Iron response element I: a 35-nucleotide RNA from Pteropus alecto. Rfam 15.1 lists 6,829 matches to the family in 599 species. On this family, see Hentze et al., Science 1987: "Identification of the iron-responsive element for the translational regulation of human ferritin mRNA". It scores 46 bits against the family's covariance model. The family's consensus secondary structure is taken from published work. Its family is annotated with response to iron ion in the Gene Ontology. Taxonomically the source falls in Pteropus (Eukaryota, Opisthokonta, Bilateria, Dipnotetrapodomorpha). The family's RNA type in Rfam is cis-regulatory element.
RNA sequence: CCGUCUCCUGCUUCAACAGUGUUUGGAUGGAGCAG
Numbered sequence: 001c002c003g004u005c006u007c008c009u010g011c012u013u014c015a016a017c018a019g020u021g022u023u024u025g026g027a028u029g030g031a032g033c034a035g
Stems, first nucleotide, its partner, number of pairs: 001035001003033002006031003010028001012027005017021001
Dot-bracket structure: (.((.(((.(.((((((...).))))))))))).)